[Rfam]
Overview:
The family of this 138-nucleotide RNA sequence from Callithrix jacchus is "Small nucleolar RNA SNORA43". Rfam links the family to the GO terms RNA processing and nucleolus. Rfam 15.1 lists 492 matches to the family in 142 species. The match comes from Rfam's covariance-model search (122 bits). The family's RNA type in Rfam is H/ACA-box small nucleolar RNA. The source organism's lineage runs through Eukaryota, Eumetazoa, Eutheria, Simiiformes and Callithrix. ACA43 is a member of the H/ACA class of snoRNA that guide the sites of modification of uridines to pseudouridines. Pairs were carried over by alignment from the consensus structure, which was predicted with RNAfold.

Nucleotides: 138
Stems, first nucleotide, its partner, number of pairs: 003063001005061003009057002024051004074130003083120002088115001092111006
Number, partner (000 for none) and nucleotide at each position: 001000g002000c003063u004000a005061u006060c007059c008000u009057g010056g011000a012000u013000u014000u015000g016000c017000c018000a019000g020000c021000a022000c023000c024051a025050u026049a027048g028000a029000u030000g031000c032000a033000g034000u035000u036000g037000u038000u039000c040000u041000g042000c043000u044000g045000u046000g047000u048027c049026u050025g051024u052000a053000a054000u055000a056010u057009c058000u059007g060006g061005g062000c063003a064000a065000a066000g067000a068000g069000a070000a071000a072000g073000u074130g075129g076128c077000u078000c079000u080000u081000u082000c083120u084119a085000u086000g087000c088115u089000c090000a091000g092111u093110g094109u095108u096107c097106a098000c099000a100000a101000a102000c103000c104000a105000g106097u107096g108095a109094a110093c111092a112000c113000u114000a115088a116000a117000a118000a119084u120083g121000u122000u123000u124000u125000a126000u127000a128076g129075c130074c131000u132000g133000a134000u135000g136000u137000u138000u